[Rfam]
RNA sequence: AACUAGAACAGGCAUUUGCGCUGUAUACGUGAGCUAUCGAAUUAACGUUUAAGCGUCGUUUUCCGGCGUCGACCUCACGGCAAUAAGGUCGCCUUGAUGGCGACCUUAUUUACCUUUA
Dot-bracket structure: .......((((((....)).))))...((((((...((((((....)))...((((((.....))))))))).))))))....((((((((((.....))))))))))..........
Numbered sequence: 001a002a003c004u005a006g007a008a009c010a011g012g013c014a015u016u017u018g019c020g021c022u023g024u025a026u027a028c029g030u031g032a033g034c035u036a037u038c039g040a041a042u043u044a045a046c047g048u049u050u051a052a053g054c055g056u057c058g059u060u061u062u063c064c065g066g067c068g069u070c071g072a073c074c075u076c077a078c079g080g081c082a083a084u085a086a087g088g089u090c091g092c093c094u095u096g097a098u099g100g101c102g103a104c105c106u107u108a109u110u111u112a113c114c115u116u117u118a
Stems, first nucleotide, its partner, number of pairs: 008024004012019002028079006037072003040049003053069006084108010